A member of the RNA family "mir-223 microRNA precursor family" from Hucho hucho, 106 nucleotides long. Lineage of the source: Eukaryota > Opisthokonta > Euteleostomi > Euteleosteomorpha > Hucho. It scores 93 bits against the family's covariance model.

[Rfam]
Nucleotides: 106
Stems, first nucleotide, its partner, number of pairs: 020092004026086001028084014048070004053065002
Number, partner (000 for none) and nucleotide at each position: 001000a002000c003000u004000u005000u006000g007000a008000g009000a010000g011000a012000a013000g014000g015000c016000c017000c018000c019000c020092c021091a022090c023089u024000u025000a026086g027000u028084g029083u030082a031081u032080u033079u034078g035077a036076c037075a038074a039073g040072c041071u042000g043000a044000g045000u046000u047000g048070g049069a050068c051067a052000c053065u054064c055000a056000g057000u058000a059000u060000g061000a062000c063000a064054g065053g066000g067051u068050g069049u070048c071041a072040g073039u074038u075037u076036g077035u078034c079033a080032a081031a082030u083029a084028c085000c086026c087000c088000a089023a090022g091021u092020g093000a094000g095000g096000g097000g098000u099000c100000a101000c102000u103000u104000g105000u106000c